Rfam assigns this 291-nucleotide RNA sequence from Gracilariopsis chorda to the family "Metazoan signal recognition particle RNA". The match comes from Rfam's covariance-model search (78 bits). NCBI's taxonomy places the organism under Eukaryota, Rhodophyta, Rhodymeniophycidae, Gracilariaceae, Gracilariopsis. About the family: The signal recognition particle (SRP) is a universally conserved ribonucleoprotein. It is involved in the co-translational targeting of proteins to membranes. The eukaryotic SRP consists of a 300-nucleotide 7S RNA and six proteins: SRPs 72, 68, 54, 19, 14, and 9. Archaeal SRP consists of a 7S RNA and homologues of the eukaryotic SRP19 and SRP54 proteins. For this family Rfam cites "Towards the structure of the mammalian signal recognition particle" (Wild et al., Curr Opin Struct Biol, 2002).

RNA sequence: ACCGGCGGGCGUCGCGUCCCGUUGUCAUCCAAGCGGAGGUGUGGUUUAGUGGAUGGCACAGCUGAAUUGGAAGCCCUCGCAUGUGCACGUAGAAGACUUGCCUGCGGAAGCCUCUGUACCUGCGACAUGCCGCGCGGAGGCGUGGCUUGACGCUUGCCCAAAGUCGGAAGUUACCGGGGGAGGCCAUGACUGGAACACCUUGAUUCCGCGCAGUGGCUGGCUGUAGGAAACACGAGUCUGAGUGGCGGCGGGGAUCACUUGCGGUUUCUGCGGUGACAAACCUAAUCCUUU
Dot-bracket structure: (((((((((........))))))....(((....))))))..((.((((....((.((((((((....((..(.((((((..((.(((.(...(((((((.((((((.((((.((((.(..(((.((.(((((((....))))))).)).)))..)..(...).(((((.....(((((....(((....)))....))))).))))).)))).))))..))))).).....)))))))).))))).)))))).)..))..)))))......))).))...)))).))...